Shown here is a 103-nucleotide sequence, a member of the family "Gammaprotebacteria rimP leader".
[Rfam]
RNA sequence: ACCUUCUUUUGAAAAAUAAUGCUGUAAAACCAAAAAGCCCUGACUUAUCAGGGCUUUUUGUUUAUCUAUAAGAAAAAUUUAGCCCCAUCAUGGGGCUUUUUUU
Numbered sequence: 001a002c003c004u005u006c007u008u009u010u011g012a013a014a015a016a017u018a019a020u021g022c023u024g025u026a027a028a029a030c031c032a033a034a035a036a037g038c039c040c041u042g043a044c045u046u047a048u049c050a051g052g053g054c055u056u057u058u059u060g061u062u063u064a065u066c067u068a069u070a071a072g073a074a075a076a077a078u079u080u081a082g083c084c085c086c087a088u089c090a091u092g093g094g095g096c097u098u099u100u101u102u103u
Base pairs, nucleotide, nucleotide: 034057035056036055037054038053039052040051041050042049082096083095084094085093
A search with the family's covariance model found it, with a score of 50 bits.